[Rfam]
Rfam assigns this 46-nucleotide RNA from Urbifossiella limnaea to the family "Acido-Lenti-1 RNA". The family has 87 seed sequences and 2,607 matches in Rfam 15.1. NCBI's taxonomy places the organism under Bacteria, Pseudomonadati, Planctomycetia, Gemmatales, Urbifossiella.
RNA sequence: CCCAGGGCGCAAGCCCUGGGCUAUUGGCUGACGCCCCUUCGGGGCU
Numbered sequence: 001c002c003c004a005g006g007g008c009g010c011a012a013g014c015c016c017u018g019g020g021c022u023a024u025u026g027g028c029u030g031a032c033g034c035c036c037c038u039u040c041g042g043g044g045c046u
Stems, first nucleotide, its partner, number of pairs: 001020008033045005